[Rfam]
RNA: Glycine riboswitch aptamer
Organism: Nitrosomonas sp. Nm84
RNA sequence: GACAGGCAAUCUGGAGAGUGCCGAGAAAUUUUUUUGGCCACCGAAGGGGCACACAGAUGCUAAUCUGUAAAUCUCUCAGGUAAAAAGGACAGAGGGGCGUGA
Numbered sequence: 001g002a003c004a005g006g007c008a009a010u011c012u013g014g015a016g017a018g019u020g021c022c023g024a025g026a027a028a029u030u031u032u033u034u035u036g037g038c039c040a041c042c043g044a045a046g047g048g049g050c051a052c053a054c055a056g057a058u059g060c061u062a063a064u065c066u067g068u069a070a071a072u073c074u075c076u077c078a079g080g081u082a083a084a085a086a087g088g089a090c091a092g093a094g095g096g097g098c099g100u101g102a
Stems, first nucleotide, its partner, number of pairs: 007096001010093004020038006040081003043077002047075003053068005